[Rfam]
RNA sequence: UUCGAUAAUAGCAAACUCAGAGCAAUCUGAGGACGCAAAGCUACGGGUCCUAAUGGGAUAGCCGGGUUGCCGAAG
Numbered sequence: 001u002u003c004g005a006u007a008a009u010a011g012c013a014a015a016c017u018c019a020g021a022g023c024a025a026u027c028u029g030a031g032g033a034c035g036c037a038a039a040g041c042u043a044c045g046g047g048u049c050c051u052a053a054u055g056g057g058a059u060a061g062c063c064g065g066g067u068u069g070c071c072g073a074a075g
Stems, first nucleotide, its partner, number of pairs: 001075001003072002011036002016031006034061001039068004044064003047059003
RNA: c-di-GMP-I-GGC riboswitch aptamer